[Rfam]
RNA sequence: AUAUACUCUGAGUGGCCAUAUUAUUGUGAUCUCUGAAUACAUAAUAAUCUGGCCACUCAGUGUAUAU
Dot-bracket structure: ...(((.((((((((((..(((((((((...........)))))))))..)))))))))).)))...
A member of the RNA family "mir-9256 microRNA precursor family" from Pipistrellus kuhlii, 67 nucleotides long. The family's consensus secondary structure was predicted with RNAalifold. The family has 8 seed sequences and 31,772 matches in Rfam 15.1. A search with the family's covariance model found it, with a score of 80 bits.